RNA sequence: CCGACCUCCUGCUGACGUGAUCGUCUUCUCACCCUUCACGUAGGCGGGCGGAAAAAGGCAGGGCCCCCACGCGAUCGACGCGCGUGGGGGCCCUGU
Numbered sequence: 001c002c003g004a005c006c007u008c009c010u011g012c013u014g015a016c017g018u019g020a021u022c023g024u025c026u027u028c029u030c031a032c033c034c035u036u037c038a039c040g041u042a043g044g045c046g047g048g049c050g051g052a053a054a055a056a057g058g059c060a061g062g063g064c065c066c067c068c069a070c071g072c073g074a075u076c077g078a079c080g081c082g083c084g085u086g087g088g089g090g091c092c093c094u095g096u
Stems, first nucleotide, its partner, number of pairs: 001051003008048006015041001017039004023033001058096016
RNA: sodF sRNA